[Rfam]
RNA sequence: AAAGAGCCCUACAUUGAAGGAGAAGCUGCUCCAUCAUGGUCCCGAGUCAUGUGCGGGUGGUCGCGAGGCUGCACGUGAAGCGUUGACAGAGGGAAACGCAGGCCAACUAUUAAGUUCCGAAAUCACCCAUCCGGGGUGGCGACCCAGUGGUCUGAAGGGGAAGGCAACACGUUGUGGCAACGGUAAACAGCGAGUCAUACAACGGCCACGCGGAGUAUAAUAACC
Numbered sequence: 001a002a003a004g005a006g007c008c009c010u011a012c013a014u015u016g017a018a019g020g021a022g023a024a025g026c027u028g029c030u031c032c033a034u035c036a037u038g039g040u041c042c043c044g045a046g047u048c049a050u051g052u053g054c055g056g057g058u059g060g061u062c063g064c065g066a067g068g069c070u071g072c073a074c075g076u077g078a079a080g081c082g083u084u085g086a087c088a089g090a091g092g093g094a095a096a097c098g099c100a101g102g103c104c105a106a107c108u109a110u111u112a113a114g115u116u117c118c119g120a121a122a123u124c125a126c127c128c129a130u131c132c133g134g135g136g137u138g139g140c141g142a143c144c145c146a147g148u149g150g151u152c153u154g155a156a157g158g159g160g161a162a163g164g165c166a167a168c169a170c171g172u173u174g175u176g177g178c179a180a181c182g183g184u185a186a187a188c189a190g191c192g193a194g195u196c197a198u199a200c201a202a203c204g205g206c207c208a209c210g211c212g213g214a215g216u217a218u219a220a221u222a223a224c225c
Stems, first nucleotide, its partner, number of pairs: 012038003016034001019032003025191002041093003046087004050082002052077004057072006111219001114216006132210002135207003138165001140163001143159003170204006177198001180195002

The record is a 225-nucleotide RNA from Desulforapulum autotrophicum, which matches "Group II catalytic intron D1-D4-6" in Rfam. Group II introns are found in rRNA, tRNA and mRNA of organelles in fungi, plants and protists, and also in mRNA in bacteria. On this family, see Bonen and Vogel, Trends Genet 2001: "The ins and outs of group II introns".